Rfam assigns this 137-nucleotide sequence from Dactylosporangium vinaceum to the family "c-di-AMP riboswitch aptamer (ydaO/yuaA leader)".
Pairs were carried over by alignment from the consensus structure.
Nucleotides: 137
Base pairs, nucleotide, nucleotide: 001121003119004118009028030116031115032114033113034112035111040050041049051101052100053099059072060071061070062069075095076094077093078092
Number, partner (000 for none) and nucleotide at each position: 001121c002000a003119c004118c005000c006000a007000a008000c009028c010000c011000c012000u013000c014000c015000g016000g017000g018000c019000g020000c021000g022000c023000g024000c025000a026000u027000c028009g029000a030116a031115c032114c033113g034112g035111g036000g037000a038000c039000c040050c041049a042000u043000g044000u045000u046000u047000c048000c049041u050040g051101g052100g053099g054000u055000g056000a057000a058000u059072c060071c061070g062069c063000a064000a065000c066000g067000c068000u069062g070061c071060g072059g073000u074000a075095g076094g077093g078092c079000g080000c081000u082000a083000u084000c085000u086000c087000u088000u089000c090000u091000c092078g093077c094076c095075c096000g097000a098000a099053c100052c101051c102000g103000u104000c105000a106000g107000c108000u109000a110000a111035c112034c113033c114032g115031g116030u117000a118004g119003g120000c121001g122000g123000u124000c125000g126000g127000u128000g129000c130000a131000u132000g133000a134000a135000g136000g137000g
About this RNA:
From the family's description: This family represents a conserved RNA structure found upstream of the ydaO and yuaA genes in Bacillus subtilis and related genes in other bacteria.